[Rfam]
RNA sequence: GAGUGAAAACAGCUCUUCAAGAAUUUUUCUAACAGAAUUUCUGAUUUUAGUUGGAAAAUCCAU
Numbered sequence: 001g002a003g004u005g006a007a008a009a010c011a012g013c014u015c016u017u018c019a020a021g022a023a024u025u026u027u028u029c030u031a032a033c034a035g036a037a038u039u040u041c042u043g044a045u046u047u048u049a050g051u052u053g054g055a056a057a058a059u060c061c062a063u
Base pairs, nucleotide, nucleotide: 035060036059038057039056040055041054042053043052044051045050
RNA: U7 small nuclear RNA
Organism: Mus musculus